[Rfam]
RNA sequence: GCUGGCAUAAUGAUGAUAUCUUUGCCGUUUACCCAUCUGACUGUUUUUUGAUGUGUAUCUUUUAAUCUGAAAUGCCAGU
Numbered sequence: 001g002c003u004g005g006c007a008u009a010a011u012g013a014u015g016a017u018a019u020c021u022u023u024g025c026c027g028u029u030u031a032c033c034c035a036u037c038u039g040a041c042u043g044u045u046u047u048u049u050g051a052u053g054u055g056u057a058u059c060u061u062u063u064a065a066u067c068u069g070a071a072a073u074g075c076c077a078g079u
Stems, first nucleotide, its partner, number of pairs: 001079007

Shown here is a 79-nucleotide sequence from Pampusana beccarii, a member of the family "Small nucleolar RNA SNORD87". For this family Rfam cites "U87 RNA, a novel C/D box small nucleolar RNA from mammalian cells" (Gogolevskaya et al., Gene, 2002). By type it is a C/D-box small nucleolar RNA.